This 81-nucleotide RNA from Pipistrellus kuhlii belongs to the Rfam family "mir-574 microRNA precursor family". Its Rfam clan is "mir-574 microRNA precursor clan". The family's consensus secondary structure was predicted with RNAalifold. Lineage of the source: Eukaryota > Gnathostomata > Teleostomi > Amniota > Pipistrellus. Rfam links the family to the GO terms RISC complex and miRNA-mediated post-transcriptional gene silencing.
RNA sequence: AGGCCUGAAGAGAGAGGUAGGUUCUGAUCUGCAGCCUUCGUGGCAACUAUUGAUCAGCCAUUGCCUCUCUCUUUCCCUCCA
Numbered sequence: 001a002g003g004c005c006u007g008a009a010g011a012g013a014g015a016g017g018u019a020g021g022u023u024c025u026g027a028u029c030u031g032c033a034g035c036c037u038u039c040g041u042g043g044c045a046a047c048u049a050u051u052g053a054u055c056a057g058c059c060a061u062u063g064c065c066u067c068u069c070u071c072u073u074u075c076c077c078u079c080c081a
Stems, first nucleotide, its partner, number of pairs: 008073013024057006033048002